[Rfam]
RNA sequence: UGAGAUGAAAUUAGUUUGAAUAUGUGAUUUCAAACUGAUUUCAUCUCAUG
Numbered sequence: 001u002g003a004g005a006u007g008a009a010a011u012u013a014g015u016u017u018g019a020a021u022a023u024g025u026g027a028u029u030u031c032a033a034a035c036u037g038a039u040u041u042c043a044u045c046u047c048a049u050g
Stems, first nucleotide, its partner, number of pairs: 001048014015032001016027003
The record is a 50-nucleotide RNA sequence from Solanum lycopersicum, which matches "MIR1886 microRNA precursor family" in Rfam.
The family's consensus secondary structure was predicted with RNAalifold.
Gene Ontology terms of the family: RISC complex and miRNA-mediated post-transcriptional gene silencing.
The organism belongs to Solanum subgen. Lycopersicon, within Eukaryota.
The family has 4 seed sequences and 1,053 matches in Rfam 15.1.